[Rfam]
RNA sequence: GUUGAGGGGAAUGUCGUCUGGUUCGAGACCAUUCUUUUGAUGAAGCAUAGGUCACUACGUACUCGAAAGAAUGAUUUCGGACCAGGCUUCAUUCCCCCUAAC
Numbered sequence: 001g002u003u004g005a006g007g008g009g010a011a012u013g014u015c016g017u018c019u020g021g022u023u024c025g026a027g028a029c030c031a032u033u034c035u036u037u038u039g040a041u042g043a044a045g046c047a048u049a050g051g052u053c054a055c056u057a058c059g060u061a062c063u064c065g066a067a068a069g070a071a072u073g074a075u076u077u078c079g080g081a082c083c084a085g086g087c088u089u090c091a092u093u094c095c096c097c098c099u100a101a102c
Stems, first nucleotide, its partner, number of pairs: 001102004006097008016087006024079003

Rfam assigns this 102-nucleotide RNA sequence from Arachis hypogaea to the family "mir-166 microRNA precursor family".
On this family, see Reinhart et al., Genes Dev 2002: "MicroRNAs in plants".
Rfam 15.1 lists 2,599 matches to the family in 229 species.
Lineage of the source: Eukaryota > Spermatophyta > fabids > Fabales > Arachis.
Rfam's curators write: This family represents the plant microRNA (miRNA) precursor mir-166.
The base pairs follow the family's consensus structure, which was predicted with PFOLD.